[Rfam]
RNA sequence: GGUACCUUUAAUGAAUGUCCCGAGAGGCUUCAAAGGUAAGGAGUAAGGCACGGGUAUACCUAUGUACCGAUGCUGUGAUCUCUUUGCUUAUUGAAGCAAAGAGAUUUUUUUA
Numbered sequence: 001g002g003u004a005c006c007u008u009u010a011a012u013g014a015a016u017g018u019c020c021c022g023a024g025a026g027g028c029u030u031c032a033a034a035g036g037u038a039a040g041g042a043g044u045a046a047g048g049c050a051c052g053g054g055u056a057u058a059c060c061u062a063u064g065u066a067c068c069g070a071u072g073c074u075g076u077g078a079u080c081u082c083u084u085u086g087c088u089u090a091u092u093g094a095a096g097c098a099a100a101g102a103g104a105u106u107u108u109u110u111u112a
Stems, first nucleotide, its partner, number of pairs: 003038007013031003017028003045076001047074004053068006077106013
This 112-nucleotide sequence from Salimicrobium jeotgali belongs to the Rfam family "PyrR binding site". Its family is annotated with pyrimidine nucleobase biosynthetic process and pyrimidine nucleobase transport in the Gene Ontology. Taxonomically the source falls in Salimicrobium (Bacteria, Bacillati, Bacilli, Bacillaceae). Rfam's curators write: This family represents the PyrR binding site and terminator structure. The literature on the family includes a 2001 paper in Nucleic Acids Res by Bonner et al., "Molecular recognition of pyr mRNA by the Bacillus subtilis attenuation regulatory protein PyrR".